[Rfam]
RNA sequence: GCAUUCGUGGUGUAAUGGUAACAUUCCAGCCUUCCACUAGUACGGUUAGCUUGAGCCUCGGGUUCGAUUCCCGGCGAAUGCA
Numbered sequence: 001g002c003a004u005u006c007g008u009g010g011u012g013u014a015a016u017g018g019u020a021a022c023a024u025u026c027c028a029g030c031c032u033u034c035c036a037c038u039a040g041u042a043c044g045g046u047u048a049g050c051u052u053g054a055g056c057c058u059c060g061g062g063u064u065c066g067a068u069u070c071c072c073g074g075c076g077a078a079u080g081c082a
Stems, first nucleotide, its partner, number of pairs: 001081007010024004026053001028051003058074005
Dot-bracket structure: (((((((..((((.......)))).(.(((..................))).)....(((((.......)))))))))))).
The record is an 82-nucleotide sequence from Coniella lustricola, which matches "tRNA" in Rfam. The base pairs follow the family's consensus structure, which is taken from published work. Rfam classes the family as a transfer RNA. Taxonomically the source falls in Coniella (Eukaryota, Ascomycota, Pezizomycotina, Sordariomycetidae).